The record is a 111-nucleotide sequence from Laticauda laticaudata, which matches "mir-130 microRNA precursor family" in Rfam. Lineage of the source: Eukaryota > Gnathostomata > Sarcopterygii > Elapidae > Laticauda. A reference for the family is Lagos-Quintana et al. (2002), "Identification of tissue-specific microRNAs from mouse", Curr Biol. It scores 47 bits against the family's covariance model. Gene Ontology terms of the family: miRNA-mediated post-transcriptional gene silencing and RISC complex.
RNA sequence: UGAAAGGCUAAAGCCCCUGUCACACUGCACCAACGGAUGGCAAGUGUUUUUCUCCGUUUUACAUCCUCUUUCCAUCCAUUGGUGCAGUGUGACAGGGGCUUUAGCCUUUCA
Numbered sequence: 001u002g003a004a005a006g007g008c009u010a011a012a013g014c015c016c017c018u019g020u021c022a023c024a025c026u027g028c029a030c031c032a033a034c035g036g037a038u039g040g041c042a043a044g045u046g047u048u049u050u051u052c053u054c055c056g057u058u059u060u061a062c063a064u065c066c067u068c069u070u071u072c073c074a075u076c077c078a079u080u081g082g083u084g085c086a087g088u089g090u091g092a093c094a095g096g097g098g099c100u101u102u103a104g105c106c107u108u109u110c111a
Base pairs, nucleotide, nucleotide: 001111002110003109006106007105008104009103010102011101013099014098015097016096017095018094019093020092023089024088025087026086027085028084029083030082031081032080033079